The family of this 102-nucleotide RNA from Vibrio sediminis is "Translational regulator of tfoXVC". Taxonomically the source falls in Vibrio (Bacteria, Pseudomonadota, Gammaproteobacteria, Vibrionaceae). It is annotated as a small RNA.
RNA sequence: AUUCCAGAAGUGGUGUGGUUUCGACCAUACCACUCCGGCAGCAAGCAAAGGUGUCCUUGGCACCCGUGGUGUGGUCCCCCGGCCAUACCACGUUUUUUUUGC
Numbered sequence: 001a002u003u004c005c006a007g008a009a010g011u012g013g014u015g016u017g018g019u020u021u022c023g024a025c026c027a028u029a030c031c032a033c034u035c036c037g038g039c040a041g042c043a044a045g046c047a048a049a050g051g052u053g054u055c056c057u058u059g060g061c062a063c064c065c066g067u068g069g070u071g072u073g074g075u076c077c078c079c080c081g082g083c084c085a086u087a088c089c090a091c092g093u094u095u096u097u098u099u100u101g102c
Stems, first nucleotide, its partner, number of pairs: 009034010038046002050064006065092012
Dot-bracket structure: ........((((((((((......))))))))))...((.....))...((((((...))))))((((((((((((....))))))))))))..........

The literature on the family includes a 2011 paper in J Bacteriol by Yamamoto et al., "Identification of a chitin-induced small RNA that regulates translation of the tfoX gene, encoding a positive regulator of natural competence in Vibrio cholerae".